RNA sequence: AUAAUGAUACUCCUGCAAGGCGCAGCCCGGGCGGAUGUCGGGGAGGUGAAAUUCCUGUGA
Numbered sequence: 001a002u003a004a005u006g007a008u009a010c011u012c013c014u015g016c017a018a019g020g021c022g023c024a025g026c027c028c029g030g031g032c033g034g035a036u037g038u039c040g041g042g043g044a045g046g047u048g049a050a051a052u053u054c055c056u057g058u059g060a
Base pairs, nucleotide, nucleotide: 012057013025014024015023016022026043027042028041030039031038032037044056045055046054

A member of the RNA family "pemK RNA" from Ructibacterium gallinarum, 60 nucleotides long. The organism belongs to Ructibacterium, within Bacteria.